Shown here is a 292-nucleotide sequence from Algisphaera agarilytica, a member of the family "5' ureB small RNA". Pairs were carried over by alignment from the consensus structure, which was predicted with mfold. The literature on the family includes a 2013 paper in J Bacteriol by Wen et al., "Helicobacter pylori 5'ureB-sRNA, a cis-encoded antisense small RNA, negatively regulates ureAB expression by transcription termination". Taxonomically the source falls in Algisphaera (Bacteria, Phycisphaerae, Phycisphaerales, Phycisphaeraceae).
RNA sequence: CGUCGGCGAUCUGCGGGCAGAUGUAGUGGACGUGAGUGUCCAGGCCGCCGGCGGUGAGAAUGUGGCCCUCGCCGGCGAUGGCUUCGGUGGUGACGCCCACGACCAUGCCGGGCGUGACGCCGGGCAUGACGUCGGGGUUGCCGGCCUUGCCGAUGCCCGUGAUCAUCCCCGCCUUGAUGCCGACGUCGGCCUUGUAGAUGCCGGUGUAGUCGACGAUGAGGGCGUUGGUGAUGACGUAGUCGAGCGCUUCAUCGGGGUCGCCGCCGGCCCGCUGGCCCAUGCCUUCGCGGAG
Numbered sequence: 001c002g003u004c005g006g007c008g009a010u011c012u013g014c015g016g017g018c019a020g021a022u023g024u025a026g027u028g029g030a031c032g033u034g035a036g037u038g039u040c041c042a043g044g045c046c047g048c049c050g051g052c053g054g055u056g057a058g059a060a061u062g063u064g065g066c067c068c069u070c071g072c073c074g075g076c077g078a079u080g081g082c083u084u085c086g087g088u089g090g091u092g093a094c095g096c097c098c099a100c101g102a103c104c105a106u107g108c109c110g111g112g113c114g115u116g117a118c119g120c121c122g123g124g125c126a127u128g129a130c131g132u133c134g135g136g137g138u139u140g141c142c143g144g145c146c147u148u149g150c151c152g153a154u155g156c157c158c159g160u161g162a163u164c165a166u167c168c169c170c171g172c173c174u175u176g177a178u179g180c181c182g183a184c185g186u187c188g189g190c191c192u193u194g195u196a197g198a199u200g201c202c203g204g205u206g207u208a209g210u211c212g213a214c215g216a217u218g219a220g221g222g223c224g225u226u227g228g229u230g231a232u233g234a235c236g237u238a239g240u241c242g243a244g245c246g247c248u249u250c251a252u253c254g255g256g257g258u259c260g261c262c263g264c265c266g267g268c269c270c271g272c273u274g275g276c277c278c279a280u281g282c283c284u285u286c287g288c289g290g291a292g
Base pairs, nucleotide, nucleotide: 001292003290006288007287008286009285012161013160014159015158016157017156019069020068027050028049029048031047032046034045037042054066055065074151075150078147080145082143087141088140089139090138091137092133093132094131103128105127106126107125108124109123111121112120168275169274173271176268178266179265180263189223190222191221192220193219204211226260227259228258233253234252237251239249